[Rfam]
RNA sequence: CGUGGAAUUCUACCAAGCUCCGACGGGAUGGCGCUCGUGACUAGGUCCGCCGCCUUGUAUCGCACGAGCGUGUGUAUACCCGUGCGACUCAAGGCGGCGGAACUAGCCACGAGCGCCCUCCCGUCGGAGUGGGAGAGAGUUUCGCGA
Number, nucleotide and partner (000 for none) at each position: 001c146002g145003u000004g143005g142006a000007a140008u139009u138010c137011u136012a000013c000014c133015a000016a000017g130018c129019u128020c127021c126022g125023a124024c000025g122026g121027g120028a119029u000030g117031g116032c115033g114034c113035u112036c111037g110038u109039g108040a000041c106042u105043a104044g103045g000046u101047c100048c000049g098050c097051c096052g095053c094054c093055u092056u091057g090058u000059a000060u087061c086062g000063c084064a083065c082066g081067a000068g000069c000070g000071u000072g000073u000074g000075u000076a000077u000078a000079c000080c000081c066082g065083u064084g063085c000086g061087a060088c000089u000090c057091a056092a055093g054094g053095c052096g051097g050098c049099g000100g047101a046102a000103c044104u043105a042106g041107c000108c039109a038110c037111g036112a035113g034114c033115g032116c031117c030118c000119u028120c027121c026122c025123g000124u023125c022126g021127g020128a019129g018130u017131g000132g000133g014134a000135g000136a011137g010138a009139g008140u007141u000142u005143c004144g000145c002146g001147a000
About this RNA: This 147-nucleotide RNA sequence from Ectocarpus sp. CCAP 1310/34 belongs to the Rfam family "MIR3454 microRNA precursor family". It scores 152 bits against the family's covariance model.